[Rfam]
RNA sequence: GUCUUAUCAAGAAAAGGUGGAGGGACAGGCCCGAUGAAACCUUGGCAACAGCCGUAUAACGGAAUUGUGCCAAAUCCUGCAGGUAAUAAAUCCUGAGAGAUAAGAA
Numbered sequence: 001g002u003c004u005u006a007u008c009a010a011g012a013a014a015a016g017g018u019g020g021a022g023g024g025a026c027a028g029g030c031c032c033g034a035u036g037a038a039a040c041c042u043u044g045g046c047a048a049c050a051g052c053c054g055u056a057u058a059a060c061g062g063a064a065u066u067g068u069g070c071c072a073a074a075u076c077c078u079g080c081a082g083g084u085a086a087u088a089a090a091u092c093c094u095g096a097g098a099g100a101u102a103a104g105a106a
Base pairs, nucleotide, nucleotide: 002105003104004103005102006101007100008099013043015042016041017040018039022032023031024030026079027078028077029076044071045070046069047068049067050066052062053061054060075098080095081094082093083092
Dot-bracket structure: .(((((((....(.((((...(((.[[[[)))......)))))((((.((.(((.....)))...))))))...(]]]]((((........))))..)))))))).
The record is a 106-nucleotide sequence from Bacillus cereus, which matches "SAM riboswitch aptamer (S box leader)" in Rfam. The source organism's lineage runs through Bacteria, Bacillota, Bacilli, Bacillus and Bacillus cereus. Rfam's curators put it in the seed alignment.